A member of the RNA family "Group II catalytic intron D1-D4-6" from Paraburkholderia humisilvae, 222 nucleotides long. A search with the family's covariance model found it, with a score of 181 bits.

RNA sequence: CAAGUCCAUUACGAUGAAGGAGUAGCGAUCCACGUCGGCCCCGAGCCGUGCGCAGGCGUUCGUGAGGACGUCGGCGAAGCGUCGGUAGGGGAGCGUGCAGGCCAUCCAUUGAGCCACGAUAGAGUUGCUAUCCCGGGUGCCGACGCUGUUCAAGCCGCGGAAGGCAAUAUGGAGGGAUGCGCAAGCGCGAGCAUCCUGACGACCCGGCGUGGUCUGAGACCC
Dot-bracket structure: ...........(((((..(((.[.[[..))).))))).((((..(((((((((.(((((((....))))))).)))...)).)))).))))..................((.((((((..............(((((((((..(((..........)))...)))....((..(((((((......]].])))))))..))))))))))))))).)......

Overview: NCBI's taxonomy places the organism under Bacteria, Pseudomonadati, Pseudomonadota, Betaproteobacteria, Paraburkholderia. About the family: Group II introns are found in rRNA, tRNA and mRNA of organelles in fungi, plants and protists, and also in mRNA in bacteria.